[Rfam]
RNA sequence: CGUCGGGCACCGCCGAACCGGGCGCUGCCGAGCAAGGCAGCGCGUGCCCGGACCGGGGACCCAUCGCAGUCCUGGGGUGAAGCGCGACCCGCACGCAGGUGCGGGCCGGCCGGGCGAGUUCCCCCGCCCGAACCCGUCAGCUAACUCGGUAGGCGGUUCCGGAGAACCA
Numbered sequence: 001c002g003u004c005g006g007g008c009a010c011c012g013c014c015g016a017a018c019c020g021g022g023c024g025c026u027g028c029c030g031a032g033c034a035a036g037g038c039a040g041c042g043c044g045u046g047c048c049c050g051g052a053c054c055g056g057g058g059a060c061c062c063a064u065c066g067c068a069g070u071c072c073u074g075g076g077g078u079g080a081a082g083c084g085c086g087a088c089c090c091g092c093a094c095g096c097a098g099g100u101g102c103g104g105g106c107c108g109g110c111c112g113g114g115c116g117a118g119u120u121c122c123c124c125c126g127c128c129c130g131a132a133c134c135c136g137u138c139a140g141c142u143a144a145c146u147c148g149g150u151a152g153g154c155g156g157u158u159c160c161g162g163a164g165a166a167c168c169a
Stems, first nucleotide, its partner, number of pairs: 011155004018051008052150006062074002075135003083109001112129004
RNA: c-di-AMP riboswitch aptamer (ydaO/yuaA leader)
Organism: Modestobacter versicolor